[Rfam]
RNA: Dictyostelium signal recognition particle
Organism: Dictyostelium purpureum
RNA sequence: AUCCAUGGCUGGGUGUUAUAACCUGUAAUCCAAAAGAAGCCUUGGGAGUAAGGAUGGGGGAGGUUGGUCAGAGUUAAUGGAAAAAACACAGCAUAAAAGAUGAUCCACUGUUACAGCGGGGUCAACAUCCACAGAGUCCGUAUGGAUUACUGCGAAGGUUGAUAAUGACAGAUCCUAGGUACAGGCUAGCAAUAGAGCACACAAAGAAAUGCGCCUCGUCGGGAGUGGGGGAAAGUCAUCCUAAAUGUGUCCAAAGAUAAUGAUUAGCUAAACUUCAGACAAA
Number, nucleotide and partner (000 for none) at each position: 001a000002u046003c045004c044005a043006u000007g031008g030009c000010u027011g024012g023013g022014u021015g000016u000017u000018a000019u000020a000021a014022c013023c012024u011025g000026u000027a010028a000029u000030c008031c007032a000033a000034a000035a000036g000037a000038a000039g000040c000041c000042u000043u005044g004045g003046g002047a000048g000049u000050a000051a000052g000053g000054a000055u277056g276057g000058g000059g274060g273061a000062g269063g268064u267065u266066g265067g264068u263069c262070a261071g000072a000073g000074u257075u256076a000077a000078u253079g252080g251081a000082a000083a000084a000085a000086a250087c249088a248089c247090a246091g000092c000093a000094u243095a242096a000097a000098a000099g240100a239101u238102g237103a236104u232105c231106c230107a000108c000109u000110g226111u225112u224113a000114c221115a000116g219117c218118g217119g216120g215121g163122u162123c161124a160125a159126c158127a000128u156129c000130c154131a000132c000133a151134g150135a148136g147137u146138c145139c144140g000141u000142a000143u000144g139145g138146a137147u136148u135149a000150c134151u133152g000153c000154g130155a000156a128157g000158g126159u125160u124161g123162a122163u121164a000165a000166u213167g212168a000169c211170a210171g000172a000173u207174c000175c000176u000177a000178g000179g202180u201181a000182c000183a000184g000185g000186c195187u194188a193189g000190c000191a000192a000193u188194a187195g186196a000197g000198c000199a000200c000201a180202c179203a000204a000205a000206g000207a173208a000209a000210u170211g169212c167213g166214c000215c120216u119217c118218g117219u116220c000221g114222g000223g000224a112225g111226u110227g000228g000229g000230g106231g105232a104233a000234a000235g000236u103237c102238a101239u100240c099241c000242u095243a094244a000245a000246u090247g089248u088249g087250u086251c080252c079253a078254a000255a000256g075257a074258u000259a000260a000261u070262g069263a068264u067265u066266a065267g064268c063269u062270a000271a000272a000273c060274u059275u000276c056277a055278g000279a000280c000281a000282a000283a000